This 88-nucleotide RNA from Xenopus tropicalis belongs to the Rfam family "mir-204 microRNA precursor family".
RNA sequence: AUGUGACCUGUGGGCUUCCCUUUGUCAUCCUAUGCCUGAGAAUAUAUGAAGGGGGCUGGGAAGGCAAAGGGACGUUCAGUUGUCAUCA
Numbered sequence: 001a002u003g004u005g006a007c008c009u010g011u012g013g014g015c016u017u018c019c020c021u022u023u024g025u026c027a028u029c030c031u032a033u034g035c036c037u038g039a040g041a042a043u044a045u046a047u048g049a050a051g052g053g054g055g056c057u058g059g060g061a062a063g064g065c066a067a068a069g070g071g072a073c074g075u076u077c078a079g080u081u082g083u084c085a086u087c088a
Stems, first nucleotide, its partner, number of pairs: 017072006024065002028061005034056004
For this family Rfam cites "Conservation of small RNA pathways in platypus" (Murchison et al., Genome Res, 2008).